[Rfam]
RNA sequence: UGGGAUACCCAUCAAAGGAGUCGUUCCCCAUCCAGGGGCUACCUUAUCAUAUUUGGGAAUC
Numbered sequence: 001u002g003g004g005a006u007a008c009c010c011a012u013c014a015a016a017g018g019a020g021u022c023g024u025u026c027c028c029c030a031u032c033c034a035g036g037g038g039c040u041a042c043c044u045u046a047u048c049a050u051a052u053u054u055g056g057g058a059a060u061c
Stems, first nucleotide, its partner, number of pairs: 017045002020042002023039005

Description
A member of the RNA family "Plastid-psbN 5UTR RNA" from Hibiscus trionum, 61 nucleotides long. On this family, see Zhelyazkova et al., Plant Cell 2012: "The primary transcriptome of barley chloroplasts: numerous noncoding RNAs and the dominating role of the plastid-encoded RNA polymerase". From the family's description: Plastid psbN is a non-coding RNA (ncRNA) recognised in plastids. A search with the family's covariance model found it, with a score of 59 bits.